[Rfam]
RNA sequence: CAGCGACAGCAAGCUGCCCGACAUGCAGGCGGGGUGGGAGCAGGGGAUCACCAAUGUUCUGGCCGGGCUUUCCGGGUUGAACAUGUGUUACGAGGCGG
Numbered sequence: 001c002a003g004c005g006a007c008a009g010c011a012a013g014c015u016g017c018c019c020g021a022c023a024u025g026c027a028g029g030c031g032g033g034g035u036g037g038g039a040g041c042a043g044g045g046g047a048u049c050a051c052c053a054a055u056g057u058u059c060u061g062g063c064c065g066g067g068c069u070u071u072c073c074g075g076g077u078u079g080a081a082c083a084u085g086u087g088u089u090a091c092g093a094g095g096c097g098g
Stems, first nucleotide, its partner, number of pairs: 031060003075096001077094002
The record is a 98-nucleotide RNA sequence from Gemmobacter aquatilis, which matches "Pyrrolysine insertion sequence mttB" in Rfam. Taxonomically the source falls in Gemmobacter (Bacteria, Pseudomonadati, Pseudomonadota, Rhodobacterales). The family's RNA type in Rfam is cis-regulatory element.